[Rfam]
A member of the RNA family "FMN riboswitch aptamer (RFN element)" from Thermasporomyces composti, 139 nucleotides long. The family's consensus secondary structure is taken from published work.
RNA sequence: CGCGUGCUCCGGGGUUCGGUGGAAUUCCGAACCGGCGGUGACAGUCCGCGACCCGGCUGGUGUCCGACCCGACACCAGACGGUGGACCAGGUGGAACUCCUGGACCGACGGUGAAAGUCCGGAUGGGAGGCAGCACGCG
Numbered sequence: 001c002g003c004g005u006g007c008u009c010c011g012g013g014g015u016u017c018g019g020u021g022g023a024a025u026u027c028c029g030a031a032c033c034g035g036c037g038g039u040g041a042c043a044g045u046c047c048g049c050g051a052c053c054c055g056g057c058u059g060g061u062g063u064c065c066g067a068c069c070c071g072a073c074a075c076c077a078g079a080c081g082g083u084g085g086a087c088c089a090g091g092u093g094g095a096a097c098u099c100c101u102g103g104a105c106c107g108a109c110g111g112u113g114a115a116a117g118u119c120c121g122g123a124u125g126g127g128a129g130g131c132a133g134c135a136c137g138c139g
Stems, first nucleotide, its partner, number of pairs: 003137006009130002017029003031118002033107002035049004044105002053082002087103005109121003
Dot-bracket structure: ..((((((((......(((.......))).[[((((((.....[[))))...((..........................))....(((((.......)))))]])).(((.....]]))).......)).))))))..